[Rfam]
RNA sequence: AAUUGUAAUUUAUGUAAGUCGCUCUGCAUAAGAGUGUCUGCUAAAUGCCAAUAA
Numbered sequence: 001a002a003u004u005g006u007a008a009u010u011u012a013u014g015u016a017a018g019u020c021g022c023u024c025u026g027c028a029u030a031a032g033a034g035u036g037u038c039u040g041c042u043a044a045a046u047g048c049c050a051a052u053a054a
Base pairs, nucleotide, nucleotide: 013043014041015040016039020036021035022034023033024032025031
This 54-nucleotide RNA from Megalops atlanticus belongs to the Rfam family "UnaL2 LINE 3' element".
Rfam's curators write: The eel long interspersed element (LINE) UnaL2 and its partner short interspersed element (SINE) share a conserved 3' tail containing a stem-loop that is critical for their retrotransposition. Presumably, the first step of retrotransposition is the recognition of their 3' tails by UnaL2-encoded reverse transcriptase. The solution structure of a 17-nucleotide RNA derived from the 3' tail of UnaL2 was determined by NMR.
The family's RNA type in Rfam is cis-regulatory element.
It scores 57 bits against the family's covariance model.
Pairs were carried over by alignment from the consensus structure, which is taken from published work.